About this RNA: FMN riboswitch aptamer (RFN element): a 209-nucleotide RNA sequence from Paenibacillus sp. NEAU-GSW1. Gene Ontology term of the family: FMN binding. It scores 98 bits against the family's covariance model. From the family's description: The RFN element is a highly conserved domain that is found frequently in the 5'-untranslated regions of prokaryotic mRNAs that encode for flavin mononucleotide (FMN) biosynthesis and transport proteins. This element is a metabolite-dependent riboswitch that directly binds FMN in the absence of proteins.
[Rfam]
Nucleotides: 209
Base pairs, nucleotide, nucleotide: 003207004206005205006204007203008202009201010200017029018028019027031189032188033179034178035098036097037096038095102154103153159175160174161173162172163171181192182191183190
Number, partner (000 for none) and nucleotide at each position: 001000a002000g003207u004206u005205u006204c007203c008202u009201u010200c011000g012000g013000g014000g015000u016000a017029g018028g019027g020000u021000g022000c023000a024000a025000u026000u027019c028018c029017c030000a031189a032188c033179c034178g035098g036097c037096g038095g039000u040000g041000a042000u043000c044000g045000g046000u047000c048000a049000g050000u051000u052000a053000g054000u055000u056000g057000g058000c059000u060000a061000a062000g063000a064000g065000g066000a067000c068000a069000a070000c071000c072000u073000c074000g075000a076000u077000g078000c079000g080000c081000u082000a083000g084000c085000u086000g087000c088000c089000g090000u091000c092000a093000g094000u095038c096037c097036g098035u099000g100000a101000c102154c103153c104000g105000g106000g107000c108000u109000g110000u111000u112000u113000c114000a115000a116000g117000u118000c119000g120000u121000u122000g123000a124000g125000c126000g127000c128000u129000u130000a131000a132000g133000c134000g135000c136000a137000a138000g139000c140000g141000g142000c143000g144000a145000a146000g147000c148000a149000g150000a151000a152000c153103g154102g155000u156000g157000g158000a159175c160174c161173u162172g163171g164000u165000g166000u167000a168000a169000a170000u171163c172162c173161g174160g175159g176000a177000c178034c179033g180000a181192c182191a183190g184000u185000a186000u187000a188032g189031u190183c191182u192181g193000g194000a195000u196000g197000g198000g199000a200010g201009a202008a203007g204006g205005a206004g207003a208000a209000u